[Rfam]
RNA sequence: CAGUCUUACAUGAUGAAACAUUUCGGAUGUAAAUUCACAGACCUGUUCUGAAAGCGCAAAGCCAUGUGGAUAUUUCCGUUGCCUUCCUUCUGAUGAGACC
Numbered sequence: 001c002a003g004u005c006u007u008a009c010a011u012g013a014u015g016a017a018a019c020a021u022u023u024c025g026g027a028u029g030u031a032a033a034u035u036c037a038c039a040g041a042c043c044u045g046u047u048c049u050g051a052a053a054g055c056g057c058a059a060a061g062c063c064a065u066g067u068g069g070a071u072a073u074u075u076c077c078g079u080u081g082c083c084u085u086c087c088u089u090c091u092g093a094u095g096a097g098a099c100c
Base pairs, nucleotide, nucleotide: 003099004098005097024078025077026076027075
The record is a 100-nucleotide RNA sequence from Exophiala spinifera, which matches "Small nucleolar RNA Z13/snr52" in Rfam. Gene Ontology terms of the family: nucleolus and RNA processing. The source organism's lineage runs through Eukaryota, Dikarya, leotiomyceta, Chaetothyriomycetidae and Exophiala.